[Rfam]
This 118-nucleotide sequence from Populus tomentosa belongs to the Rfam family "MIR474 microRNA precursor family". Taxonomically the source falls in Populus (Eukaryota, Spermatophyta, eudicotyledons, Saliceae). The match comes from Rfam's covariance-model search (50 bits). For this family Rfam cites "Novel and mechanical stress-responsive MicroRNAs in Populus trichocarpa that are absent from Arabidopsis" (Lu et al., Plant Cell, 2005).
RNA sequence: AGCCAAUCUUCUUGGGUAUGGUUGGGCAACCAGACCCAAUGCUAUUAGGUCUGGCGGUCAAGCCAGACCCAAUGCUAUUUGAUCUAGCUGUCCAGCUAAACCUGGUAAUAAUUUUUUA
Numbered sequence: 001a002g003c004c005a006a007u008c009u010u011c012u013u014g015g016g017u018a019u020g021g022u023u024g025g026g027c028a029a030c031c032a033g034a035c036c037c038a039a040u041g042c043u044a045u046u047a048g049g050u051c052u053g054g055c056g057g058u059c060a061a062g063c064c065a066g067a068c069c070c071a072a073u074g075c076u077a078u079u080u081g082a083u084c085u086a087g088c089u090g091u092c093c094a095g096c097u098a099a100a101c102c103u104g105g106u107a108a109u110a111a112u113u114u115u116u117u118a
Stems, first nucleotide, its partner, number of pairs: 001116002005114002009110001012105006019098010030087001032052005038046003056084007